[Rfam]
RNA sequence: CCGGUUCCGGUUCACGCCCGAGCCCGACGCGCGCCACGCGUCGGGGCCGCACGGCGACCCGGCGACC
Number, nucleotide and partner (000 for none) at each position: 001c000002c000003g067004g066005u065006u000007c062008c061009g060010g059011u000012u000013c000014a000015c056016g055017c054018c053019c049020g048021a000022g000023c000024c000025c000026g000027a000028c000029g000030c000031g000032c000033g000034c000035c000036a000037c000038g000039c000040g000041u000042c000043g000044g000045g000046g000047c000048c020049g019050c000051a000052c000053g018054g017055c016056g015057a000058c000059c010060c009061g008062g007063c000064g000065a005066c004067c003
RNA: L31-Actinobacteria ribosomal protein leader